This 122-nucleotide RNA sequence from Sphaerotilus hippei belongs to the Rfam family "Burkholderia RNA 11". A reference for the family is Ramos et al. (2013), "Experimental identification of small non-coding regulatory RNAs in the opportunistic human pathogen Burkholderia cenocepacia J2315", Genomics. The family's RNA type in Rfam is small RNA. The base pairs follow the family's consensus structure, which was predicted with RNAfold. The source organism's lineage runs through Bacteria, Pseudomonadati, Betaproteobacteria, Burkholderiales and Sphaerotilus.

RNA sequence: GCAACCUGCAGCUCGCCCGCACCGAUCCGGUGGUGUUCCGCUCGCUGCUGGGCAUCUCGUGGAUGUGGUUCUUCGGCGCGGUCUUCCUGAGCCAGUUCCCGGCCUUCGCCAAGGAGGUGCUG
Numbered sequence: 001g002c003a004a005c006c007u008g009c010a011g012c013u014c015g016c017c018c019g020c021a022c023c024g025a026u027c028c029g030g031u032g033g034u035g036u037u038c039c040g041c042u043c044g045c046u047g048c049u050g051g052g053c054a055u056c057u058c059g060u061g062g063a064u065g066u067g068g069u070u071c072u073u074c075g076g077c078g079c080g081g082u083c084u085u086c087c088u089g090a091g092c093c094a095g096u097u098c099c100c101g102g103c104c105u106u107c108g109c110c111a112a113g114g115a116g117g118u119g120c121u122g
Base pairs, nucleotide, nucleotide: 010049011048012047014044015043018040019039021037023035024034026032051121052120053119054118055117057115058114060112062110063105065103067099068098071095072094077089078088080087081086
A search with the family's covariance model found it, with a score of 95 bits.